[Rfam]
RNA sequence: AAGUCGGAAGUGAGAGUUGUAGGAAAAUGAACGCCAACGACACUAACAUAUGUGGAUUAUUGGUUCAUUUUCCUCCAACAUCUCACCUCCGACCU
Numbered sequence: 001a002a003g004u005c006g007g008a009a010g011u012g013a014g015a016g017u018u019g020u021a022g023g024a025a026a027a028u029g030a031a032c033g034c035c036a037a038c039g040a041c042a043c044u045a046a047c048a049u050a051u052g053u054g055g056a057u058u059a060u061u062g063g064u065u066c067a068u069u070u071u072c073c074u075c076c077a078a079c080a081u082c083u084c085a086c087c088u089c090c091g092a093c094c095u
Stems, first nucleotide, its partner, number of pairs: 004092005011085004016079004021074001023072008032063001
This 95-nucleotide sequence from Macleaya cordata belongs to the Rfam family "MIR2275 microRNA precursor family". The organism belongs to Macleaya, within Eukaryota. The family's consensus secondary structure was predicted with RNAalifold. The match comes from Rfam's covariance-model search (61 bits).